Shown here is a 127-nucleotide RNA sequence from Photinus pyralis, a member of the family "U4 spliceosomal RNA". Rfam 15.1 lists 32,178 matches to the family in 2,547 species. The source organism's lineage runs through Eukaryota, Altocrustacea, Dicondylia, Elateroidea and Photinus. The family's consensus secondary structure is taken from published work. It scores 73 bits against the family's covariance model. Gene Ontology terms of the family: spliceosomal tri-snRNP complex assembly and U4 snRNP.
[Rfam]
RNA sequence: UGCUUUGCGCAGUGGCAAUAUUGUAACCGAUGAAGUAUAACUGAGGUGCAAUUAUUGCUAGUUGGAAACUUUAUUUCUUCAUGAAUUUUCAAACAAUAAUUGCAUAUUUGCUAUUCUCCUUUUUAAA
Numbered sequence: 001u002g003c004u005u006u007g008c009g010c011a012g013u014g015g016c017a018a019u020a021u022u023g024u025a026a027c028c029g030a031u032g033a034a035g036u037a038u039a040a041c042u043g044a045g046g047u048g049c050a051a052u053u054a055u056u057g058c059u060a061g062u063u064g065g066a067a068a069c070u071u072u073a074u075u076u077c078u079u080c081a082u083g084a085a086u087u088u089u090c091a092a093a094c095a096a097u098a099a100u101u102g103c104a105u106a107u108u109u110g111c112u113a114u115u116c117u118c119c120u121u122u123u124u125a126a127a
Stems, first nucleotide, its partner, number of pairs: 020052005026047003034042003081105003084101004120127002